Source information
Rfam assigns this 377-nucleotide RNA sequence from Drosophila simulans to the family "Drosophila melanogaster stable intronic sequence RNA 1". For this family Rfam cites "Stable intronic sequence RNAs have possible regulatory roles in Drosophila melanogaster" (Pek et al., J Cell Biol, 2015).
[Rfam]
RNA sequence: ACUUCUUUUUAUUUAUUUCUGUUUUUAAAACUACGAUUAAGAAUCAGCUGUAUGCGUGGUGUCUUGUGAUCAGCUCAUUAAGCCCACUUAGUUAUGCUACGCUGUAUUUGUGACUAAACUCGGGUGGUGGUUUGGGUAUUUGGGCAAUAAGAAAACUAGUUUCAGUCAAGGACAUAAACUUUGGCUACGUUGGUCCAACCGAAUACGGACAAUACUAAUGGAAUCAGAAGAGCUUUUGCAAGUCAGAGUUUAAAAUCGAAAUUUGAUGGAAUCGAUUCCGGAUUAUACAUGAAGCAUAUUAUUAUGCAAUCUCAUUUUCUUUAAAAUAUGAUCAAUGAAUAAAAAGAAACCGUUCACAUAAUGCAAGCGACUUAACC
Number, nucleotide and partner (000 for none) at each position: 001a000002c000003u348004u347005c346006u345007u344008u343009u342010u341011a340012u339013u338014u337015a336016u335017u334018u000019c000020u035021g034022u033023u000024u000025u000026u000027a000028a000029a000030a000031c000032u000033a022034c021035g020036a000037u000038u000039a000040a000041g224042a000043a000044u222045c221046a000047g219048c000049u000050g210051u209052a000053u000054g102055c101056g100057u099058g098059g097060u096061g095062u094063c000064u000065u091066g000067u000068g000069a000070u000071c000072a000073g083074c082075u081076c000077a000078u000079u000080a000081a075082g074083c073084c000085c000086a000087c000088u000089u000090a000091g065092u000093u000094a062095u061096g060097c059098u058099a057100c056101g055102c054103u000104g206105u205106a204107u203108u202109u201110g200111u000112g195113a194114c193115u192116a191117a190118a000119c000120u000121c000122g163123g162124g161125u000126g000127g000128u158129g157130g156131u155132u154133u153134g000135g000136g000137u149138a000139u000140u147141u146142g000143g000144g000145c000146a141147a140148u000149a137150a000151g000152a000153a133154a132155a131156c130157u129158a128159g000160u000161u124162u123163c122164a186165g185166u184167c183168a182169a181170g180171g179172a000173c000174a000175u000176a000177a000178a000179c171180u170181u169182u168183g167184g166185c165186u164187a000188c000189g000190u117191u116192g115193g114194u113195c112196c000197a000198a000199c000200c110201g109202a108203a107204u106205a105206c104207g000208g000209a051210c050211a000212a000213u000214a000215c000216u000217a000218a000219u047220g000221g045222a044223a000224u041225c258226a256227g000228a000229a000230g251231a250232g249233c248234u247235u246236u245237u000238g000239c000240a000241a000242g000243u000244c000245a236246g235247a234248g233249u232250u231251u230252a000253a000254a000255a000256u226257c000258g225259a000260a000261a332262u331263u330264u000265g000266a000267u000268g000269g000270a000271a000272u000273c000274g000275a000276u000277u000278c000279c000280g000281g290282a000283u000284u000285a000286u000287a000288c000289a000290u281291g000292a000293a000294g000295c306296a305297u304298a303299u000300u000301a000302u000303u298304a297305u296306g295307c000308a000309a000310u000311c000312u000313c000314a000315u000316u000317u000318u000319c000320u000321u000322u000323a000324a000325a000326a000327u000328a000329u000330g263331a262332u261333c000334a017335a016336u015337g014338a013339a012340u011341a010342a009343a008344a007345a006346g005347a004348a003349a000350c000351c000352g000353u000354u000355c000356a000357c000358a000359u000360a000361a000362u000363g000364c000365a000366a000367g000368c000369g000370a000371c000372u000373u000374a000375a000376c000377c000

The family has 3 seed sequences and 3 matches in Rfam 15.1. Taxonomically the source falls in Sophophora (Eukaryota, Metazoa, Dicondylia, Eremoneura).